[Rfam]
Notes:
Shown here is a 400-nucleotide part of an RNA from Candidatus Methanobinarius endosymbioticus, a member of the family "Archaeal large subunit ribosomal RNA". The organism belongs to Candidatus Methanobinarius, within Archaea. The literature on the family includes a 2002 paper in BMC Bioinformatics by Cannone et al., "The comparative RNA web (CRW) site: an online database of comparative sequence and structure information for ribosomal, intron, and other RNAs". Pairs were carried over by alignment from the consensus structure, which is taken from published work. A search with the family's covariance model found it, with a score of 2888 bits.
RNA sequence: AGUAGUAGCAGCAAAGUAAAGUGAGAAUCUUUACCGCCGAAGGGGCUAGGGAUCCUUGGCAAUGUUCGUCAGCCAAGGGUUAGUCGAUCCUAAGGCCAGUCGUAAUUCGAACUGGUCGAAUGGGAAACAGAUUAAUAUUUCUGUACAUAAUAAAUACGUACGGCAACGUUAAGACUAAUUUCUGACACUUCAAGAUAAACCGUGUAGGAUUGUCGUUCUAUUUAAGUGUUGAAGCCUGAGGAGAGGUGUAAUAGCGAGAAUCAGGUGUAUUCAUCAAUAGCUAUUCUUAAGAAUAGUUCGGUUGAGUCAUGGAGUCCUUGAAAAAGAAAUUAGUAUGGAUUUUAUUAUUUCGUACCGAGAUCCGUCACAGGUGCCCCUAGUUGAGUAGACUAAGGCGUUU
Numbered sequence: 001a002g003u004a005g006u007a008g009c010a011g012c013a014a015a016g017u018a019a020a021g022u023g024a025g026a027a028u029c030u031u032u033a034c035c036g037c038c039g040a041a042g043g044g045g046c047u048a049g050g051g052a053u054c055c056u057u058g059g060c061a062a063u064g065u066u067c068g069u070c071a072g073c074c075a076a077g078g079g080u081u082a083g084u085c086g087a088u089c090c091u092a093a094g095g096c097c098a099g100u101c102g103u104a105a106u107u108c109g110a111a112c113u114g115g116u117c118g119a120a121u122g123g124g125a126a127a128c129a130g131a132u133u134a135a136u137a138u139u140u141c142u143g144u145a146c147a148u149a150a151u152a153a154a155u156a157c158g159u160a161c162g163g164c165a166a167c168g169u170u171a172a173g174a175c176u177a178a179u180u181u182c183u184g185a186c187a188c189u190u191c192a193a194g195a196u197a198a199a200c201c202g203u204g205u206a207g208g209a210u211u212g213u214c215g216u217u218c219u220a221u222u223u224a225a226g227u228g229u230u231g232a233a234g235c236c237u238g239a240g241g242a243g244a245g246g247u248g249u250a251a252u253a254g255c256g257a258g259a260a261u262c263a264g265g266u267g268u269a270u271u272c273a274u275c276a277a278u279a280g281c282u283a284u285u286c287u288u289a290a291g292a293a294u295a296g297u298u299c300g301g302u303u304g305a306g307u308c309a310u311g312g313a314g315u316c317c318u319u320g321a322a323a324a325a326g327a328a329a330u331u332a333g334u335a336u337g338g339a340u341u342u343u344a345u346u347a348u349u350u351c352g353u354a355c356c357g358a359g360a361u362c363c364g365u366c367a368c369a370g371g372u373g374c375c376c377c378u379a380g381u382u383g384a385g386u387a388g389a390c391u392a393a394g395g396c397g398u399u400u
Stems, first nucleotide, its partner, number of pairs: 016034006035397004043376004049356002054078006063071002085352003089123002094117006100110003127144005147348008181327003187315006194308002198303005204221005226274003235265005245255001247253001286291001362371002378392004